RNA sequence: GGAGUCAAGUGGACUGUCGCUGCAUAUCCUUUUAUGGAUUUAUGGAGAGGAAAGUCCGGGCUUCAUAGGGUAAAACGCUGGGUAACACCCAGGAAGAGUGAUCUUCGGCAAGCGCAACAGAAAGUAAACCGCCAUUAUUAAUAAUAGUGGUAAGGGUGAAACGGUGGAGUAAGAGUCUACCAGUCGUUAUAGUGAUAUAGCGAGCUAGGCAAGCCCCGUUUGAAGCAAGACCAAAUAGGGGAACAGGCUGACCCGGCCAAUGUUCCUGGGUAGGUUGCUUGAGAAUAUAGGUAACUAUAUUCCUAGAUGAAUGACAGUCGCCCAUUAGGGUACAGAACCCGGCUUAUAGCUUGACUCCUUUA
Number, nucleotide and partner (000 for none) at each position: 001g358002g357003a356004g355005u354006c353007a352008a351009g350010u349011g347012g319013a318014c317015u316016g315017u314018c313019g000020c047021u046022g000023c044024a043025u042026a041027u000028c000029c000030u000031u000032u000033u000034a000035u000036g000037g000038a000039u000040u000041u026042a025043u024044g023045g000046a021047g020048a000049g000050g000051a000052a345053a344054g343055u000056c342057c341058g340059g339060g338061c225062u224063u223064c222065a000066u000067a000068g254069g253070g252071u251072a000073a221074a220075a219076c218077g217078c092079u091080g090081g089082g088083u000084a000085a000086c000087a000088c082089c081090c080091a079092g078093g106094a105095a104096g103097a102098g000099u000100g000101a000102u097103c096104u095105u094106c093107g216108g215109c000110a000111a000112g214113c213114g210115c209116a000117a000118c000119a000120g000121a000122a000123a000124g000125u000126a000127a000128a000129c155130c154131g151132c150133c149134a148135u147136u146137a145138u144139u143140a000141a000142u000143a139144a138145u137146a136147g135148u134149g133150g132151u131152a000153a000154g130155g129156g000157u000158g000159a000160a000161a000162c000163g181164g180165u179166g178167g177168a176169g000170u000171a000172a000173g000174a000175g000176u168177c167178u166179a165180c164181c163182a000183g205184u203185c202186g201187u200188u199189a198190u197191a196192g000193u000194g000195a000196u191197a190198u189199a188200g187201c186202g185203a184204g000205c183206u000207a000208g000209g115210c114211a000212a000213g113214c112215c108216c107217c077218g076219u075220u074221u073222g064223a063224a062225g061226c000227a000228a000229g276230a275231c274232c273233a000234a000235a000236u000237a000238g000239g267240g266241g265242a264243a263244c262245a000246g258247g257248c256249u255250g000251a071252c070253c069254c068255g249256g248257c247258c246259a000260a000261u000262g244263u243264u242265c241266c240267u239268g000269g000270g000271u000272a000273g232274g231275u230276u229277g000278c000279u000280u000281g000282a000283g302284a301285a300286u299287a298288u297289a296290g295291g000292u000293a000294a000295c290296u289297a288298u287299a286300u285301u284302c283303c000304u000305a000306g000307a000308u000309g000310a000311a000312u000313g018314a017315c016316a015317g014318u013319c012320g000321c000322c000323c000324a000325u000326u000327a000328g000329g000330g000331u000332a000333c000334a000335g000336a000337a000338c060339c059340c058341g057342g056343c054344u053345u052346a000347u011348a000349g010350c009351u008352u007353g006354a005355c004356u003357c002358c001359u000360u000361u000362a000

Source information:
The family of this 362-nucleotide RNA from Lawsonia intracellularis is "Bacterial RNase P class A". The sequence is in the family's curated seed alignment.